A member of the RNA family "dinG RNA", 94 nucleotides long. The base pairs follow the family's consensus structure, which is taken from published work. Rfam's curators put it in the seed alignment. It is annotated as a small RNA.
RNA sequence: AAUGAUACUCCCCCGAUACAACCGGGGCUGAACAGCGCGGAGGCGCGAUUCAGGGAAGCGUCGUGCGGUUUGAAAGAGAAUCGUGGGAGCUUCC
Dot-bracket structure: ..........(((((.......)))))(((((................)))))((((((..(...(((((........)))))...).))))))